Bacterial RNase P class A: a 332-nucleotide RNA sequence from Methylovorus sp. MM2.

RNA sequence: GAAGCUGGCUAGGCAGUCGCCGCUUGCGCAAGCAGGGGGAGGAAAGUCCGGGCUCCAUAGAGCGGGAUGACGGCUAACGGCCGUACGCAGCAACUUUUAUAUCGCAAGAUAUAAAGGCCAAGGCGAGGAAUAGGGCCACAGAGACGAGCGUAUUUAGUUACGGUGAAACGCGGUAACCUCCAUCCGGAGCAAGGCCAAAUAGGGUAGUAAUGGCGUGGCUCGCGCUGCUACCGGGUAGGCUGCUUGAGCGCAUGAGUAAUUGUGCGCCUAGAUGAAUGACUGCUAUCCGCAGAAAUGCGGCACAGAACCCGGCUUAUCGGCCAGCUUCCUUC
Numbered sequence: 001g002a003a004g005c006u007g008g009c010u011a012g013g014c015a016g017u018c019g020c021c022g023c024u025u026g027c028g029c030a031a032g033c034a035g036g037g038g039g040a041g042g043a044a045a046g047u048c049c050g051g052g053c054u055c056c057a058u059a060g061a062g063c064g065g066g067a068u069g070a071c072g073g074c075u076a077a078c079g080g081c082c083g084u085a086c087g088c089a090g091c092a093a094c095u096u097u098u099a100u101a102u103c104g105c106a107a108g109a110u111a112u113a114a115a116g117g118c119c120a121a122g123g124c125g126a127g128g129a130a131u132a133g134g135g136c137c138a139c140a141g142a143g144a145c146g147a148g149c150g151u152a153u154u155u156a157g158u159u160a161c162g163g164u165g166a167a168a169c170g171c172g173g174u175a176a177c178c179u180c181c182a183u184c185c186g187g188a189g190c191a192a193g194g195c196c197a198a199a200u201a202g203g204g205u206a207g208u209a210a211u212g213g214c215g216u217g218g219c220u221c222g223c224g225c226u227g228c229u230a231c232c233g234g235g236u237a238g239g240c241u242g243c244u245u246g247a248g249c250g251c252a253u254g255a256g257u258a259a260u261u262g263u264g265c266g267c268c269u270a271g272a273u274g275a276a277u278g279a280c281u282g283c284u285a286u287c288c289g290c291a292g293a294a295a296u297g298c299g300g301c302a303c304a305g306a307a308c309c310c311g312g313c314u315u316a317u318c319g320g321c322c323a324g325c326u327u328c329c330u331u332c
Stems, first nucleotide, its partner, number of pairs: 001328010011317001012284007020039002023036005044315003048312005053189004060221004065185005070084005086125003128180002133178002135174003149162004193241004203232006212226005248267008
A search with the family's covariance model found it, with a score of 230 bits.